[Rfam]
RNA sequence: UUUAUCAGAAGAGGUGCGUUUGCCAGGCAAGCUGUAGUAGGGUGCCAAAACCCAAUGAAUACAGCCUAGGGGGCACAACGCCGAGAUACGAACGAUUUGGCGGCGUUCGUAUCGGUGGUUAGGGUUGAAUCUCUGCUACUGUCACCGUUUCAGGUGGAGAGCUUCUGGGGCG
Number, nucleotide and partner (000 for none) at each position: 001u000002u000003u000004a000005u000006c167007a166008g165009a164010a163011g162012a000013g000014g000015u000016g081017c080018g079019u078020u077021u000022g000023c000024c073025a000026g000027g000028c000029a000030a000031g065032c064033u063034g062035u061036a060037g000038u000039a000040g000041g000042g000043u000044g000045c000046c000047a000048a000049a000050a000051c000052c000053c000054a000055a000056u000057g000058a000059a000060u036061a035062c034063a033064g032065c031066c000067u000068a000069g000070g000071g000072g000073g024074c000075a000076c000077a020078a019079c018080g017081c016082c000083g000084a000085g113086a112087u111088a110089c109090g108091a107092a106093c105094g104095a000096u000097u000098u000099g000100g000101c000102g000103g000104c094105g093106u092107u091108c090109g089110u088111a087112u086113c085114g140115g139116u138117g137118g136119u135120u000121a134122g133123g132124g131125u000126u000127g000128a000129a000130u000131c124132u123133c122134u121135g119136c118137u117138a116139c115140u114141g000142u157143c156144a155145c154146c153147g000148u000149u000150u000151c000152a000153g146154g145155u144156g143157g142158a000159g000160a000161g000162c011163u010164u009165c008166u007167g006168g000169g000170g000171c000172g000
RNA: Lysine riboswitch aptamer
Organism: Idiomarina sp. A28L